[Rfam]
RNA sequence: UAGGUUUGCCCUAAGUCAAACAUGUCUAACUUUGACCAAGUGUGUAGAAUAAUACAACAACAACUAUAAUACUAAACAUAUUCCAUGGUGGAUUCAACUAAACAAAUUUGGUAUUGUAGAUGUUGUUAUAUUAUUCUAUAAACUUGGUCAAAGAUGGAUAGGUCUGACUUAGGACAAAUCUAA
Numbered sequence: 001u002a003g004g005u006u007u008g009c010c011c012u013a014a015g016u017c018a019a020a021c022a023u024g025u026c027u028a029a030c031u032u033u034g035a036c037c038a039a040g041u042g043u044g045u046a047g048a049a050u051a052a053u054a055c056a057a058c059a060a061c062a063a064c065u066a067u068a069a070u071a072c073u074a075a076a077c078a079u080a081u082u083c084c085a086u087g088g089u090g091g092a093u094u095c096a097a098c099u100a101a102a103c104a105a106a107u108u109u110g111g112u113a114u115u116g117u118a119g120a121u122g123u124u125g126u127u128a129u130a131u132u133a134u135u136c137u138a139u140a141a142a143c144u145u146g147g148u149c150a151a152a153g154a155u156g157g158a159u160a161g162g163u164c165u166g167a168c169u170u171a172g173g174a175c176a177a178a179u180c181u182a183a
Stems, first nucleotide, its partner, number of pairs: 005178004011172008020163002023160004031152005045138008056127002059124004064119005072111005
RNA: MIR1435 microRNA precursor family
Organism: Setaria italica